[Rfam]
RNA sequence: GGGCAAUGAAGAAUUGCGAUUGGUCUCGUUCGUUGUAAUGGCAUGUUUCCAUGCCUUGCCGACCAUACUGAUAUAUCACCACCCAUAAACUGAGUCC
Numbered sequence: 001g002g003g004c005a006a007u008g009a010a011g012a013a014u015u016g017c018g019a020u021u022g023g024u025c026u027c028g029u030u031c032g033u034u035g036u037a038a039u040g041g042c043a044u045g046u047u048u049c050c051a052u053g054c055c056u057u058g059c060c061g062a063c064c065a066u067a068c069u070g071a072u073a074u075a076u077c078a079c080c081a082c083c084c085a086u087a088a089a090c091u092g093a094g095u096c097c
Stems, first nucleotide, its partner, number of pairs: 001097004043057001045052001

Shown here is a 97-nucleotide RNA from Salvia splendens, a member of the family "Small nucleolar RNA Z43". Rfam links the family to the GO terms nucleolus and RNA processing. On this family, see Chen et al., Nucleic Acids Res 2003: "The high diversity of snoRNAs in plants: identification and comparative study of 120 snoRNA genes from Oryza sativa". Taxonomically the source falls in core Calosphace (Eukaryota, Streptophyta, Streptophytina, Mentheae). It is annotated as a C/D-box small nucleolar RNA.